Annotation:
A member of the RNA family "Selenocysteine insertion sequence 1" from Perca flavescens, 62 nucleotides long.
RNA sequence: GUGUGUUUAAUGAAGAUUUGUUUCUAAACUCUGCUGAGAGAACAGAUCUGAUGCUAGCACAC
Numbered sequence: 001g002u003g004u005g006u007u008u009a010a011u012g013a014a015g016a017u018u019u020g021u022u023u024c025u026a027a028a029c030u031c032u033g034c035u036g037a038g039a040g041a042a043c044a045g046a047u048c049u050g051a052u053g054c055u056a057g058c059a060c061a062c
Base pairs, nucleotide, nucleotide: 001062002061003060004059005058015048016047017046018045019044020043021042022041023040029038030037031036
Dot-bracket structure: (((((.........(((((((((.....(((....))).))))))))).........)))))

Pairs were carried over by alignment from the consensus structure, which is taken from published work. A search with the family's covariance model found it, with a score of 46 bits. The organism belongs to Perca, within Eukaryota. From the family's description: The incorporation of selenocysteine into a protein sequence is directed by an in-frame UGA codon (usually a stop codon) within the coding region of the mRNA. Selenoprotein mRNAs contain a conserved secondary structure in the 3' UTR that is required for the distinction of UGA stop from UGA selenocysteine. The selenocysteine insertion sequence (SECIS) is around 60 nt in length and adopts a hairpin structure which is sufficiently well-defined and conserved to act as a computational screen for selenoprotein genes. The family's RNA type in Rfam is cis-regulatory element.